[Rfam]
RNA sequence: GUUGCAUGUUUGAGGCCAUAAUAUAAACAUUCACAGUGUGGCCCUGUCAGAUUCCAAGGAAUGUGUGAAUUCUGCU
Numbered sequence: 001g002u003u004g005c006a007u008g009u010u011u012g013a014g015g016c017c018a019u020a021a022u023a024u025a026a027a028c029a030u031u032c033a034c035a036g037u038g039u040g041g042c043c044c045u046g047u048c049a050g051a052u053u054c055c056a057a058g059g060a061a062u063g064u065g066u067g068a069a070u071u072c073u074g075c076u
Stems, first nucleotide, its partner, number of pairs: 012044001014043004020076001022074002025071002027039003048065002051062004

This 76-nucleotide sequence from Alligator sinensis belongs to the Rfam family "Mammalian CPEB3 ribozyme". The literature on the family includes a 2006 paper in Science by Salehi-Ashtiani et al., "A genomewide search for ribozymes reveals an HDV-like sequence in the human CPEB3 gene". The mammalian CPEB3 ribozyme is a self cleaving RNA located in the second intron of the CPEB3 gene which belongs to a family of genes regulating messenger RNA polyadenylation. A search with the family's covariance model found it, with a score of 48 bits.